[Rfam]
About this RNA:
This 82-nucleotide RNA belongs to the Rfam family "DUF3800-IX RNA". The family's consensus secondary structure is taken from published work. It is annotated as a small RNA. Actinobacteria, Firmicutes (1 example), Nitrospirae, Proteobacteria, Verrucomicrobia (1 example).

RNA sequence: UCCCGCCCGCGAAAGGUCGCCCUUGAGGCGGCCCCGCCCCCGUCUGGACGUGAUGACGGUGUGGCUAGCGAGGCGGGUUAUU
Numbered sequence: 001u002c003c004c005g006c007c008c009g010c011g012a013a014a015g016g017u018c019g020c021c022c023u024u025g026a027g028g029c030g031g032c033c034c035c036g037c038c039c040c041c042g043u044c045u046g047g048a049c050g051u052g053a054u055g056a057c058g059g060u061g062u063g064g065c066u067a068g069c070g071a072g073g074c075g076g077g078u079u080a081u082u
Stems, first nucleotide, its partner, number of pairs: 002077006008070003015033007036065003039061001